[Rfam]
RNA sequence: AAAUGUCUUCAGGGCAGGGUGCAAUUCCCGACCGGCGGUGACUUUUCGUUUACUGUUCCAGCUUGAUGGCCUGCAGAGUAGUUCUGCAGAGCUGAUGCUUAAAAAUAAGCAGCAGGAAUAUGAAGCGAGAAGAAGUCCGCGAGCGCAAGCUGAUGCGGUGCAAUUCCGCAACCGACAGUAAAGUCUGGAUGGGAGAAGACGAAG
Numbered sequence: 001a002a003a004u005g006u007c008u009u010c011a012g013g014g015c016a017g018g019g020u021g022c023a024a025u026u027c028c029c030g031a032c033c034g035g036c037g038g039u040g041a042c043u044u045u046u047c048g049u050u051u052a053c054u055g056u057u058c059c060a061g062c063u064u065g066a067u068g069g070c071c072u073g074c075a076g077a078g079u080a081g082u083u084c085u086g087c088a089g090a091g092c093u094g095a096u097g098c099u100u101a102a103a104a105a106u107a108a109g110c111a112g113c114a115g116g117a118a119u120a121u122g123a124a125g126c127g128a129g130a131a132g133a134a135g136u137c138c139g140c141g142a143g144c145g146c147a148a149g150c151u152g153a154u155g156c157g158g159u160g161c162a163a164u165u166c167c168g169c170a171a172c173c174g175a176c177a178g179u180a181a182a183g184u185c186u187g188g189a190u191g192g193g194a195g196a197a198g199a200c201g202a203a204g
Stems, first nucleotide, its partner, number of pairs: 004201007017029003031184002033174002035140004143150002154170005176187003